[Rfam]
RNA sequence: UUUACGCGAUGAAAUGGAAGGUAGCUAUCUGAUAGGAAAUUUCCAUGGAGUAUGUCCAGAUCAUGAAUCGGGCGACAG
Dot-bracket structure: .............(((..(((...((((...))))....))).)))......((((..(.((.......)).))))).
A member of the RNA family "S10-Clostridia ribosomal protein leader" from Alkalibaculum sporogenes, 78 nucleotides long. The organism belongs to Alkalibaculum, within Bacteria. By type it is a cis-regulatory leader. On this family, see Eckert and Weinberg, BMC Microbiol 2020: "Discovery of 20 novel ribosomal leader candidates in bacteria and archaea".